[Rfam]
RNA sequence: GAUAAAGAGGGUGAGAUGCCCUCUCGCCGAAAGACCAAGGGUUCCUGCGCAACGCUAAUCGGCGCAGGGUGAGCCGGCCCCUAAGACGAGCCCGAAGGGGGUAGUCGAUGGGAACCACGUUAAUAUUCGUGGGCCUGAAGAUGUGUGACGGAUGGUGGAAGUAGUUCGAUCUUAUUGGAUUGAUCGGGCUGCCAAGCUGUUCCAGGAAAUAGCCUCUUCAUAUAGACCGUACCCGAAACCGACACAGGUGGUCAGGUAGAGUAUACCAAGGCGCU
Numbered sequence: 001g002a003u004a005a006a007g008a009g010g011g012u013g014a015g016a017u018g019c020c021c022u023c024u025c026g027c028c029g030a031a032a033g034a035c036c037a038a039g040g041g042u043u044c045c046u047g048c049g050c051a052a053c054g055c056u057a058a059u060c061g062g063c064g065c066a067g068g069g070u071g072a073g074c075c076g077g078c079c080c081c082u083a084a085g086a087c088g089a090g091c092c093c094g095a096a097g098g099g100g101g102u103a104g105u106c107g108a109u110g111g112g113a114a115c116c117a118c119g120u121u122a123a124u125a126u127u128c129g130u131g132g133g134c135c136u137g138a139a140g141a142u143g144u145g146u147g148a149c150g151g152a153u154g155g156u157g158g159a160a161g162u163a164g165u166u167c168g169a170u171c172u173u174a175u176u177g178g179a180u181u182g183a184u185c186g187g188g189c190u191g192c193c194a195a196g197c198u199g200u201u202c203c204a205g206g207a208a209a210u211a212g213c214c215u216c217u218u219c220a221u222a223u224a225g226a227c228c229g230u231a232c233c234c235g236a237a238a239c240c241g242a243c244a245c246a247g248g249u250g251g252u253c254a255g256g257u258a259g260a261g262u263a264u265a266c267c268a269a270g271g272c273g274c275u
Base pairs, nucleotide, nucleotide: 006024007023008022009021010020011019025273026272027271028270033253034252035251036250039233040232044068045067046066047065048064049063053061054060075229076228077227080111081110085106086105087104089102091100092099093098115132116131117130118129119128135225136224137219140216141215143214146211150202151201152200153199161192162191163190164189165188166187167186168185169184170183171182239248240247255267256266257265258264
A member of the RNA family "Bacterial large subunit ribosomal RNA" from Alteraurantiacibacter aestuarii, 275 nucleotides of a longer RNA. The organism belongs to Alteraurantiacibacter, within Bacteria. The base pairs follow the family's consensus structure, which is taken from published work.